[Rfam]
The family of this 26-nucleotide RNA from Edwardsiella hoshinae is "L25-Gammaproteobacteria ribosomal protein leader". It is one of the family's seed sequences. Pairs were carried over by alignment from the consensus structure, which is taken from published work. The family's RNA type in Rfam is cis-regulatory leader.

RNA sequence: UCUGCUGCUGGGUCGCCUGUGGCGGA
Numbered sequence: 001u002c003u004g005c006u007g008c009u010g011g012g013u014c015g016c017c018u019g020u021g022g023c024g025g026a
Base pairs, nucleotide, nucleotide: 001026002025003024004023005022006021007020008019010017011016